[Rfam]
RNA sequence: UAGUAAAAAAUGCCGAAUCAGCACAGCAUAAGUGCUUGUACGGGGGACAUCUUAUUUUGGGGUGAAUAUUCGUCGGUUUAUUGGAUGAAUAAGGGAAAACCUCUCCCUAACCCGUCAACUAACCUCGGAGGCAAUUAGGAGGAAUCAG
Number, nucleotide and partner (000 for none) at each position: 001u000002a000003g000004u000005a000006a000007a000008a000009a000010a000011u133012g132013c131014c130015g000016a000017a000018u000019c038020a037021g000022c000023a000024c000025a000026g000027c000028a000029u000030a000031a000032g000033u000034g000035c000036u000037u020038g019039u000040a000041c127042g126043g125044g124045g123046g000047a000048c000049a000050u059051c000052u000053u000054a000055u000056u000057u000058u000059g050060g113061g112062g111063u000064g000065a000066a000067u000068a090069u089070u088071c087072g086073u085074c084075g000076g000077u000078u000079u000080a000081u000082u000083g000084g074085a073086u072087g071088a070089a069090u068091a000092a000093g107094g106095g105096a104097a000098a000099a000100c000101c000102u000103c000104u096105c095106c094107c093108u000109a000110a000111c062112c061113c060114g000115u000116c000117a000118a000119c000120u000121a000122a000123c045124c044125u043126c042127g041128g000129a000130g014131g013132c012133a011134a000135u000136u000137a000138g000139g000140a000141g000142g000143a000144a000145u000146c000147a000148g000